[Rfam]
RNA sequence: CAGCUCUGGUUCCUCUGCAUCAAACGAGAAAUUCUUUCGCCUUUUACUAAAGAUUUCCGUGCAGAGGAGCAAUAAUGAGUAUUCAUUAGUUUUUGGCAACCCUGUUUGCAGGGUC
Numbered sequence: 001c002a003g004c005u006c007u008g009g010u011u012c013c014u015c016u017g018c019a020u021c022a023a024a025c026g027a028g029a030a031a032u033u034c035u036u037u038c039g040c041c042u043u044u045u046a047c048u049a050a051a052g053a054u055u056u057c058c059g060u061g062c063a064g065a066g067g068a069g070c071a072a073u074a075a076u077g078a079g080u081a082u083u084c085a086u087u088a089g090u091u092u093u094u095g096g097c098a099a100c101c102c103u104g105u106u107u108g109c110a111g112g113g114u115c
Stems, first nucleotide, its partner, number of pairs: 003080004009070011030056002033053005099114006
RNA: U5 spliceosomal RNA
Organism: Plectus sambesii